[Rfam]
The family of this 371-nucleotide sequence from Silvimonas terrae is "Bacterial RNase P class A".
NCBI's taxonomy places the organism under Bacteria, Pseudomonadati, Pseudomonadota, Chitinibacteraceae, Silvimonas.
From the family's description: Ribonuclease P (RNase P) is a ubiquitous endoribonuclease, found in archaea, bacteria and eukarya as well as chloroplasts and mitochondria.
RNA sequence: GAAGCAAGCCAGACAGUCGCUGCCCGUUGCAAAACGGGGGGAGGAAAGUCCGGGCUCCGCAGGGCAGGAUGCCGGCUAACGGCCGGGCGCCGUGAGGCGACGGAAAGUGCAACAGAGAGUAGACCGCCGAUGGCCAGGUCAAACUGGCACAGGUAAGGGUGAAACGGUGCGGUAAGAGCGCACCAGCGUCCCGGGCAACCGGGCGGCUCGGUAAACCCCAUCCGGAGCAAGACCAAGCAGCAGGCGUUGAGGCGGCCCGCCAAGCCUGCGGGUAGGUUGCAUGAGCCCAUUAGUAAUGAUGGGCCUAGAGGAAUGGCUGUCAGGAUGCGCGAGCAUCUGUACAAAACCCGGCUUACCGGCUGGCUUCGCAA
Numbered sequence: 001g002a003a004g005c006a007a008g009c010c011a012g013a014c015a016g017u018c019g020c021u022g023c024c025c026g027u028u029g030c031a032a033a034a035c036g037g038g039g040g041g042a043g044g045a046a047a048g049u050c051c052g053g054g055c056u057c058c059g060c061a062g063g064g065c066a067g068g069a070u071g072c073c074g075g076c077u078a079a080c081g082g083c084c085g086g087g088c089g090c091c092g093u094g095a096g097g098c099g100a101c102g103g104a105a106a107g108u109g110c111a112a113c114a115g116a117g118a119g120u121a122g123a124c125c126g127c128c129g130a131u132g133g134c135c136a137g138g139u140c141a142a143a144c145u146g147g148c149a150c151a152g153g154u155a156a157g158g159g160u161g162a163a164a165c166g167g168u169g170c171g172g173u174a175a176g177a178g179c180g181c182a183c184c185a186g187c188g189u190c191c192c193g194g195g196c197a198a199c200c201g202g203g204c205g206g207c208u209c210g211g212u213a214a215a216c217c218c219c220a221u222c223c224g225g226a227g228c229a230a231g232a233c234c235a236a237g238c239a240g241c242a243g244g245c246g247u248u249g250a251g252g253c254g255g256c257c258c259g260c261c262a263a264g265c266c267u268g269c270g271g272g273u274a275g276g277u278u279g280c281a282u283g284a285g286c287c288c289a290u291u292a293g294u295a296a297u298g299a300u301g302g303g304c305c306u307a308g309a310g311g312a313a314u315g316g317c318u319g320u321c322a323g324g325a326u327g328c329g330c331g332a333g334c335a336u337c338u339g340u341a342c343a344a345a346a347c348c349c350g351g352c353u354u355a356c357c358g359g360c361u362g363g364c365u366u367c368g369c370a371a
Base pairs, nucleotide, nucleotide: 001367002366003365004364005363007361008360009359010358012321013320014319015318016317017316018315020041021040023038024037025036026035027034028033046354047353048352050351051350052349053348054347055227056226057225058224062258063257064256065255067223068222069221070220071219072086073085074084075083076082087101088099089098090097091096102218103217107216108215109212110211124158125157126154127153128152131149132148134146166184167183168182169181170180171179186207187205188204190203191202192201193200194199231278232277233276234275240269241268242267243266244265245264251261252260253259285304286303287302288301289300290299291298292297